[Rfam]
RNA: Actino-pnp RNA
Organism: Haloactinospora alba
RNA sequence: GCCGGUCCUCGGUAGUGGUUUCCGGACCGUCACAGCGGGCCGGAAACUUCGAUCGAUGACCGGC
Numbered sequence: 001g002c003c004g005g006u007c008c009u010c011g012g013u014a015g016u017g018g019u020u021u022c023c024g025g026a027c028c029g030u031c032a033c034a035g036c037g038g039g040c041c042g043g044a045a046a047c048u049u050c051g052a053u054c055g056a057u058g059a060c061c062g063g064c
Base pairs, nucleotide, nucleotide: 001064002063003062004061005060006059007058009056010055011054012053013052017048018047019046020045021044022043023042024041025040027038028037029036
Dot-bracket structure: (((((((.(((((...(((((((((.(((......))).)))))))))...))))).)))))))